[Rfam]
RNA sequence: UUUUUUAAAAAAGCGCCAGAGCUGGUGAAUGUACUUGAAACAGCAGAUCGCCAGUUGACGAGGAGGAGGUUUAUCGAACGUUCGGCGGAUACCUCCCGGCUGCGGCACACAGUCGAAUUUUCUUUCGUAAAUCAUGCGAGGCGACUCGAUGGACAAAGGAAAGGAAAUGUGCCCGA
Numbered sequence: 001u002u003u004u005u006u007a008a009a010a011a012a013g014c015g016c017c018a019g020a021g022c023u024g025g026u027g028a029a030u031g032u033a034c035u036u037g038a039a040a041c042a043g044c045a046g047a048u049c050g051c052c053a054g055u056u057g058a059c060g061a062g063g064a065g066g067a068g069g070u071u072u073a074u075c076g077a078a079c080g081u082u083c084g085g086c087g088g089a090u091a092c093c094u095c096c097c098g099g100c101u102g103c104g105g106c107a108c109a110c111a112g113u114c115g116a117a118u119u120u121u122c123u124u125u126c127g128u129a130a131a132u133c134a135u136g137c138g139a140g141g142c143g144a145c146u147c148g149a150u151g152g153a154c155a156a157a158g159g160a161a162a163g164g165a166a167a168u169g170u171g172c173c174c175g176a
Stems, first nucleotide, its partner, number of pairs: 020056008029048001065096005074085004097115006119166007133151003137148004
RNA: glmS glucosamine-6-phosphate activated ribozyme aptamer